The record is a 101-nucleotide sequence from Paenibacillus catalpae, which matches "Purine riboswitch aptamer" in Rfam. A search with the family's covariance model found it, with a score of 74 bits. Gene Ontology term of the family: purine nucleobase biosynthetic process. Its Rfam clan is "Purine riboswitches". Taxonomically the source falls in Paenibacillus (Bacteria, Bacilli, Caryophanales, Paenibacillaceae).
RNA sequence: CGUAAAUAUGAUGAAAUUCCUCGUAUAUCCUCGGGAAUAAGGCCCGAAAGUUUCUACCCGAAAACCUAUAUUUUCGGACUACGAGUAUGAUGGAACAAAUA
Numbered sequence: 001c002g003u004a005a006a007u008a009u010g011a012u013g014a015a016a017u018u019c020c021u022c023g024u025a026u027a028u029c030c031u032c033g034g035g036a037a038u039a040a041g042g043c044c045c046g047a048a049a050g051u052u053u054c055u056a057c058c059c060g061a062a063a064a065c066c067u068a069u070a071u072u073u074u075c076g077g078a079c080u081a082c083g084a085g086u087a088u089g090a091u092g093g094a095a096c097a098a099a100u101a
Stems, first nucleotide, its partner, number of pairs: 018087001020085006031047005058077007